[Rfam]
A member of the RNA family "Qrr RNA" from Vibrio ruber, 101 nucleotides long.
Gene Ontology term of the family: quorum sensing.
The literature on the family includes a 2007 paper in Genes Dev by Tu and Bassler, "Multiple small RNAs act additively to integrate sensory information and control quorum sensing in Vibrio harveyi".

RNA sequence: UGACCCUUAAGCCGAGGGUCACCUAGCCAACUGACGUUGUUAGUGAACCCUGUUGUUCACAUUGAUUGUGCCAAGUGCGGAUUGCACUUGGCUUUUUUUUG
Numbered sequence: 001u002g003a004c005c006c007u008u009a010a011g012c013c014g015a016g017g018g019u020c021a022c023c024u025a026g027c028c029a030a031c032u033g034a035c036g037u038u039g040u041u042a043g044u045g046a047a048c049c050c051u052g053u054u055g056u057u058c059a060c061a062u063u064g065a066u067u068g069u070g071c072c073a074a075g076u077g078c079g080g081a082u083u084g085c086a087c088u089u090g091g092c093u094u095u096u097u098u099u100u101g
Base pairs, nucleotide, nucleotide: 001021002020003019004018005017006016037068039066040065043060044059045058046057047056048055071091072090073089074088075087076086077085078084
Notes
Pairs were carried over by alignment from the consensus structure, which is taken from published work. By type it is a small RNA. Rfam describes the family as follows. This family represents a set of small RNAs (the Qrr RNAs) that are thought to be involved in the regulation of quorum sensing in Vibrio species.